[Rfam]
The record is a 117-nucleotide RNA from Oryza sativa, which matches "MIR827 microRNA precursor family" in Rfam.
Nucleotides: 117
Stems, first nucleotide, its partner, number of pairs: 001115003005112004010107015026091001
Number, partner (000 for none) and nucleotide at each position: 001115u002114u003113u004000u005112g006111u007110u008109g009000c010107u011106g012105g013104u014103c015102a016101u017100c018099u019098a020097g021096c022095u023094a024093c025000c026091c027000g028000u029000g030000c031000a032000u033000g034000c035000c036000u037000g038000g039000a040000g041000a042000u043000u044000g045000g046000a047000g048000a049000a050000u051000a052000a053000u054000u055000g056000a057000c058000g059000a060000u061000g062000c063000a064000g065000c066000a067000g068000u069000c070000g071000g072000c073000u074000u075000a076000u077000u078000g079000g080000c081000u082000c083000u084000u085000g086000g087000g088000c089000a090000c091026g092000c093024g094023u095022g096021g097020u098019u099018a100017g101016a102015u103014g104013a105012c106011c107010a108000u109008c110007a111006g112005c113003a114002a115001a116000c117000a
The family is grouped with related families in Rfam's "MIR827 microRNA precursor clan". The organism belongs to Oryza, within Eukaryota. Rfam's curators put it in the seed alignment.